[Rfam]
RNA sequence: CUUCACCGAGCCCAGCCACAACGGCCCGCCGGUGCGCCCCUGGCCAUAGGUGGAAAGCAGCGCCUGCGCCUC
Numbered sequence: 001c002u003u004c005a006c007c008g009a010g011c012c013c014a015g016c017c018a019c020a021a022c023g024g025c026c027c028g029c030c031g032g033u034g035c036g037c038c039c040c041u042g043g044c045c046a047u048a049g050g051u052g053g054a055a056a057g058c059a060g061c062g063c064c065u066g067c068g069c070c071u072c
Stems, first nucleotide, its partner, number of pairs: 015025003032067002035062002040057002044053003
The record is a 72-nucleotide sequence, which matches "ASpks TB sRNA" in Rfam. The base pairs follow the family's consensus structure, which is taken from published work.